RNA sequence: AGACUAGCAAAGGGGUGCUCGGAGAAUUCUCCAGCUGAGAACAGACCCUACCAUAACCUGAUACGGGUAAUGCCGUCGAAGGGAUUGCGUAGUUAUACUUU
Numbered sequence: 001a002g003a004c005u006a007g008c009a010a011a012g013g014g015g016u017g018c019u020c021g022g023a024g025a026a027u028u029c030u031c032c033a034g035c036u037g038a039g040a041a042c043a044g045a046c047c048c049u050a051c052c053a054u055a056a057c058c059u060g061a062u063a064c065g066g067g068u069a070a071u072g073c074c075g076u077c078g079a080a081g082g083g084a085u086u087g088c089g090u091a092g093u094u095a096u097a098c099u100u101u
Stems, first nucleotide, its partner, number of pairs: 007088004011049004016043001017035003021031001057082003063076004

The record is a 101-nucleotide RNA from Segatella baroniae, which matches "TPP riboswitch aptamer (THI element)" in Rfam. Rfam describes the family as follows. Vitamin B(1) in its active form thiamin pyrophosphate (TPP) is an essential coenzyme that is synthesised by coupling of pyrimidine and thiazole moieties in bacteria. The previously detected thiamin-regulatory element, thi box was extended, resulting in a new, highly conserved RNA secondary structure, the THI element, which is widely distributed in eubacteria and also occurs in some archaea. Analysis of operon structures identified a large number of new candidate thiamin-regulated genes, mostly transporters, in various prokaryotic organisms. The THI element is a riboswitch that directly binds to TPP to regulate gene expression through a variety of mechanisms in archaea, bacteria and eukaryotes. through a variety of mechanisms in archaea, bacteria and eukaryotes.